RNA sequence: GGUGGUUCUCGGGUGAUGCACCCCAGAAUCGAACUCCUUCUUCAAUGGUUCCGGAUGCGUCACCCGAGAACCACA
Numbered sequence: 001g002g003u004g005g006u007u008c009u010c011g012g013g014u015g016a017u018g019c020a021c022c023c024c025a026g027a028a029u030c031g032a033a034c035u036c037c038u039u040c041u042u043c044a045a046u047g048g049u050u051c052c053g054g055a056u057g058c059g060u061c062a063c064c065c066g067a068g069a070a071c072c073a074c075a
Stems, first nucleotide, its partner, number of pairs: 002074002005071013019057002022054002026051006
RNA: mir-9223 microRNA precursor family